[Rfam]
RNA: mir-9/mir-79 microRNA precursor family
RNA sequence: UGGUUUCUGUCUUUGGUUAUCUAGCUGUAUGAGUAUAAUAACAUGUCAUAAAGCUAGAUAACCGAAAGUAGAAAUUA
Numbered sequence: 001u002g003g004u005u006u007c008u009g010u011c012u013u014u015g016g017u018u019a020u021c022u023a024g025c026u027g028u029a030u031g032a033g034u035a036u037a038a039u040a041a042c043a044u045g046u047c048a049u050a051a052a053g054c055u056a057g058a059u060a061a062c063c064g065a066a067a068g069u070a071g072a073a074a075u076u077a
Stems, first nucleotide, its partner, number of pairs: 001077005007071004012066015028050005
Dot-bracket structure: (((((.((((.(((((((((((((((.(((((.............))))).))))))))))))))).)))).)))))